[Rfam]
RNA sequence: CAACCGGCAAGAACCAUGUGAAUCAAGGAGUGUAGUGAUUCACACGGUUCUCGCACA
Dot-bracket structure: ......((.((((((.(((((((((..........))))))))).)))))).))...

Shown here is a 57-nucleotide RNA from Cynara cardunculus, a member of the family "Plastid-ccsA-ndhD-1 3UTR RNA". Rfam's curators write: Plastid-ccsA-ndhD-1 is a non-coding RNA (ncRNA) recognised in plastids. It was found in the three prime untranslated region (3UTR) of ccsA and ndhD genes, its 3UTR location suggests a role in transcript maturation. Pairs were carried over by alignment from the consensus structure, which was predicted with LocARNA. Rfam classes the family as a cis-regulatory element. The source organism's lineage runs through Eukaryota, Viridiplantae, Pentapetalae, Asteraceae and Cynara cardunculus subsp. cardunculus. Clan: Plastid-ccsA_ndhD 3UTR RNA clan.